This 88-nucleotide RNA belongs to the Rfam family "Rhodo-rpoB RNA". The base pairs follow the family's consensus structure, which is taken from published work. Rfam classes the family as a cis-regulatory element. It is one of the family's seed sequences.

RNA sequence: GGUUCGGGUGCGUGAUUUGGGAUGUCACGCAAGAAUAGGACCAGACCCCCACUGGUGAGCAGACCAGCCCGGUCCCCGACGGUGCUGC
Dot-bracket structure: (((((....(((((((.......))))))).......)))))......................(((((((........))).)))).